[Rfam]
RNA: Actinobacteria sRNA Ms_IGR-7
Organism: Streptomyces sp. NTH33
RNA sequence: CGGAAGUGCCUUGUCGAUUGUGCGUGCUGGAAGCCUGAAGAACUCCCGUCAUCGCAGGUCACAGGGCACUUCCUCGUUUCCGGAGAAGUUGUCCACAGGCAUCAAGCCGGUGGAUCCGG
Numbered sequence: 001c002g003g004a005a006g007u008g009c010c011u012u013g014u015c016g017a018u019u020g021u022g023c024g025u026g027c028u029g030g031a032a033g034c035c036u037g038a039a040g041a042a043c044u045c046c047c048g049u050c051a052u053c054g055c056a057g058g059u060c061a062c063a064g065g066g067c068a069c070u071u072c073c074u075c076g077u078u079u080c081c082g083g084a085g086a087a088g089u090u091g092u093c094c095a096c097a098g099g100c101a102u103c104a105a106g107c108c109g110g111u112g113g114a115u116c117c118g119g
Base pairs, nucleotide, nucleotide: 002073003072004071005070006069007068008067009066010065011064012063013062016060017059019057021056022055023054024053025051026050028048030046032044033043099117101115102114103113105111
Dot-bracket structure: .((((((((((((..((.(.((((((.(.(.((.........)).).).)).))))).)).)))))))))))).........................(.(((.(.....).))).)..